[Rfam]
RNA sequence: GUGAAUUGAUUCACAAACAAACAUAUACCCCUUUGUUUGAACGUGAAAAUUUCUCCCAUCCCCUUUGAUGUCUGAACAGGACGUCGAAAAGACCUGGUUUCCCGCCAGGUCUUUUUU
Numbered sequence: 001g002u003g004a005a006u007u008g009a010u011u012c013a014c015a016a017a018c019a020a021a022c023a024u025a026u027a028c029c030c031c032u033u034u035g036u037u038u039g040a041a042c043g044u045g046a047a048a049a050u051u052u053c054u055c056c057c058a059u060c061c062c063c064u065u066u067g068a069u070g071u072c073u074g075a076a077c078a079g080g081a082c083g084u085c086g087a088a089a090a091g092a093c094c095u096g097g098u099u100u101c102c103c104g105c106c107a108g109g110u111c112u113u114u115u116u117u
Stems, first nucleotide, its partner, number of pairs: 003053003007049001011046004018039006069081001072079001088114011